[Rfam]
RNA sequence: UAUCGUUACAAACUCUCCGCAAACCGAGACCUCUAGGGAGUAUAAAUCACGUCUCUAAUACCUGACCUGGAGGGUAGGUCAGGAAUAUUCUACCUA
Numbered sequence: 001u002a003u004c005g006u007u008a009c010a011a012a013c014u015c016u017c018c019g020c021a022a023a024c025c026g027a028g029a030c031c032u033c034u035a036g037g038g039a040g041u042a043u044a045a046a047u048c049a050c051g052u053c054u055c056u057a058a059u060a061c062c063u064g065a066c067c068u069g070g071a072g073g074g075u076a077g078g079u080c081a082g083g084a085a086u087a088u089u090c091u092a093c094c095u096a
Base pairs, nucleotide, nucleotide: 013040014039015038016037017036019034026055027054028053029052030051061083062082063081064080065079066078067077
Shown here is a 96-nucleotide RNA sequence, a member of the family "PhotoRC-II RNA".
The base pairs follow the family's consensus structure, which is taken from published work.
It is one of the family's seed sequences.